[Rfam]
RNA: mir-449 microRNA precursor family
RNA sequence: UGUGUGUGACGGGUUGGCAGUGUAUUGUUAGCUGGUUGAAUAUGUGAAAGGCACCAGCUAACAUGCAACUGCUAUCCUGUCGCACAUA
Numbered sequence: 001u002g003u004g005u006g007u008g009a010c011g012g013g014u015u016g017g018c019a020g021u022g023u024a025u026u027g028u029u030a031g032c033u034g035g036u037u038g039a040a041u042a043u044g045u046g047a048a049a050g051g052c053a054c055c056a057g058c059u060a061a062c063a064u065g066c067a068a069c070u071g072c073u074a075u076c077c078u079g080u081c082g083c084a085c086a087u088a
Stems, first nucleotide, its partner, number of pairs: 001088013015074007022066003027062010041050001043048001